[Rfam]
RNA sequence: GGCGCUUCAGGUGGCUCUGGGCCUACAGUUAUGACGACAGACCAGAAACGGGAAGCCGUGGAGGUCAUGUGUGAGGCAACGGAUCUGUCACAACGUCGAAUCCGCAGGCUGGCAAAUC
Numbered sequence: 001g002g003c004g005c006u007u008c009a010g011g012u013g014g015c016u017c018u019g020g021g022c023c024u025a026c027a028g029u030u031a032u033g034a035c036g037a038c039a040g041a042c043c044a045g046a047a048a049c050g051g052g053a054a055g056c057c058g059u060g061g062a063g064g065u066c067a068u069g070u071g072u073g074a075g076g077c078a079a080c081g082g083a084u085c086u087g088u089c090a091c092a093a094c095g096u097c098g099a100a101u102c103c104g105c106a107g108g109c110u111g112g113c114a115a116a117u118c
Stems, first nucleotide, its partner, number of pairs: 036089006043082001048059004063080001065078001